[Rfam]
RNA sequence: ACAACAAGCUAGGGGUGCCUGAAUAAUUCAGGCUGAGAUUACACCCUCGGAACCUGAGUCUGGUUAGUACCAGCGGAGGGAAGCGUUGAAUUUCGAUC
Numbered sequence: 001a002c003a004a005c006a007a008g009c010u011a012g013g014g015g016u017g018c019c020u021g022a023a024u025a026a027u028u029c030a031g032g033c034u035g036a037g038a039u040u041a042c043a044c045c046c047u048c049g050g051a052a053c054c055u056g057a058g059u060c061u062g063g064u065u066a067g068u069a070c071c072a073g074c075g076g077a078g079g080g081a082a083g084c085g086u087u088g089a090a091u092u093u094c095g096a097u098c
Base pairs, nucleotide, nucleotide: 006086008084009083010082011047012046013045014044016041017033018032019031020030021029053079054078055077060073061072062071063070